[Rfam]
RNA sequence: GGGGAUGAUCGGUUUCGACAUUGCCUGCAAAACUGCGAGAAGCGGGUCGAGGAUGCAGGGUUAUCUCGUUAACGCCACCUGCAAACAAUAAGUGCCAAUAAAUCACGCACUGACUUCGCCCUCGCUGCCUAAGCGAGCGCACUAGAAGUCUGUCGGUCCGGGAAUGCUCUCUACCCGGGUUCCGGCAUCAUUCAGAGAGAUUGCUGCGACGUUAUGCCUGAGGGCGCCGCGGGACUCUAACUCAGACUGGGCUCGUUGACCCUGAUGCUUGUGGCAAAGGUCAGAGCCGAGUAGAACGCAUCACAAGCUACGCCCGUAGAAGGCGCAGGAUUACAGCAGUGGACGGGGGUUCAAUUCCCCCCAUCUCCACCA
Numbered sequence: 001g002g003g004g005a006u007g008a009u010c011g012g013u014u015u016c017g018a019c020a021u022u023g024c025c026u027g028c029a030a031a032a033c034u035g036c037g038a039g040a041a042g043c044g045g046g047u048c049g050a051g052g053a054u055g056c057a058g059g060g061u062u063a064u065c066u067c068g069u070u071a072a073c074g075c076c077a078c079c080u081g082c083a084a085a086c087a088a089u090a091a092g093u094g095c096c097a098a099u100a101a102a103u104c105a106c107g108c109a110c111u112g113a114c115u116u117c118g119c120c121c122u123c124g125c126u127g128c129c130u131a132a133g134c135g136a137g138c139g140c141a142c143u144a145g146a147a148g149u150c151u152g153u154c155g156g157u158c159c160g161g162g163a164a165u166g167c168u169c170u171c172u173a174c175c176c177g178g179g180u181u182c183c184g185g186c187a188u189c190a191u192u193c194a195g196a197g198a199g200a201u202u203g204c205u206g207c208g209a210c211g212u213u214a215u216g217c218c219u220g221a222g223g224g225c226g227c228c229g230c231g232g233g234a235c236u237c238u239a240a241c242u243c244a245g246a247c248u249g250g251g252c253u254c255g256u257u258g259a260c261c262c263u264g265a266u267g268c269u270u271g272u273g274g275c276a277a278a279g280g281u282c283a284g285a286g287c288c289g290a291g292u293a294g295a296a297c298g299c300a301u302c303a304c305a306a307g308c309u310a311c312g313c314c315c316g317u318a319g320a321a322g323g324c325g326c327a328g329g330a331u332u333a334c335a336g337c338a339g340u341g342g343a344c345g346g347g348g349g350u351u352c353a354a355u356u357c358c359c360c361c362c363a364u365c366u367c368c369a370c371c372a
Base pairs, nucleotide, nucleotide: 001368002367003366004365005364006363007362019341020340021339022338023337025336026335027334033328034327035326036325037324043316044315045314046313047312048068049067050066051065052064054083055082056081057080058079059078118140119139121137122136123135124134125133151187152186153185154184155183156182157179158178159177160176161175162174164172167199168198169197170196171195204232205231206230207229208228210226211225212224216247218245219244220243250288251287252286253285254284257283258282259281263276264275267308268307269306270305271304272303273302345361346360347359348358349357

transfer-messenger RNA: a 372-nucleotide RNA sequence from Galbitalea soli. The source organism's lineage runs through Bacteria, Bacillati, Actinomycetes, Microbacteriaceae and Galbitalea. Its Rfam clan is "tRNA clan".